Description: Rfam assigns this 37-nucleotide sequence from Alaudala cheleensis to the family "Iron response element I". Gene Ontology term of the family: response to iron ion. The literature on the family includes a 1987 paper in Science by Hentze et al., "Identification of the iron-responsive element for the translational regulation of human ferritin mRNA". NCBI's taxonomy places the organism under Eukaryota, Eumetazoa, Euteleostomi, Dinosauria, Alaudala. A search with the family's covariance model found it, with a score of 46 bits.
[Rfam]
RNA sequence: CUGCGUUCUCGCUUCAACAGUGCUUGAACGGAACCGG
Numbered sequence: 001c002u003g004c005g006u007u008c009u010c011g012c013u014u015c016a017a018c019a020g021u022g023c024u025u026g027a028a029c030g031g032a033a034c035c036g037g
Stems, first nucleotide, its partner, number of pairs: 001037003005034005011029001013028005018022001